[Rfam]
RNA sequence: CAAGCAGAUCACCUUAUCGCGACGCUGUCGAGGAAAGUCCGGACACCAUAGCGCAGCAUAGCGGGUAACGCCCGUCCGUUGUAAGACGAGGACAAGUGCAACAGAAAGAAUGUACAGGUAAUGCUGUAGUGAAAUCAGGUAAACUCUAUGCGGUGCAACGCCAUGUAAACCAACUUUUGAGGGUUGCGCGCCCAACGUUGGAGGGUAGGCGGUUGGAGCUAGUGAGUAAUUACUGGCCUAGAUAAAUGAUAAGGCCCGUCUUUUAGACGGUGACAGAAUCCGGCUUAUGAUCUGCUUUUUUA
Numbered sequence: 001c002a003a004g005c006a007g008a009u010c011a012c013c014u015u016a017u018c019g020c021g022a023c024g025c026u027g028u029c030g031a032g033g034a035a036a037g038u039c040c041g042g043a044c045a046c047c048a049u050a051g052c053g054c055a056g057c058a059u060a061g062c063g064g065g066u067a068a069c070g071c072c073c074g075u076c077c078g079u080u081g082u083a084a085g086a087c088g089a090g091g092a093c094a095a096g097u098g099c100a101a102c103a104g105a106a107a108g109a110a111u112g113u114a115c116a117g118g119u120a121a122u123g124c125u126g127u128a129g130u131g132a133a134a135u136c137a138g139g140u141a142a143a144c145u146c147u148a149u150g151c152g153g154u155g156c157a158a159c160g161c162c163a164u165g166u167a168a169a170c171c172a173a174c175u176u177u178u179g180a181g182g183g184u185u186g187c188g189c190g191c192c193c194a195a196c197g198u199u200g201g202a203g204g205g206u207a208g209g210c211g212g213u214u215g216g217a218g219c220u221a222g223u224g225a226g227u228a229a230u231u232a233c234u235g236g237c238c239u240a241g242a243u244a245a246a247u248g249a250u251a252a253g254g255c256c257c258g259u260c261u262u263u264u265a266g267a268c269g270g271u272g273a274c275a276g277a278a279u280c281c282g283g284c285u286u287a288u289g290a291u292c293u294g295c296u297u298u299u300u301u302a
Stems, first nucleotide, its partner, number of pairs: 002297010012254007020030004035286003039283005044155004051189004056151005061075005076090001077088004091146002096144002098140002113128005159211004170201005181193004218237008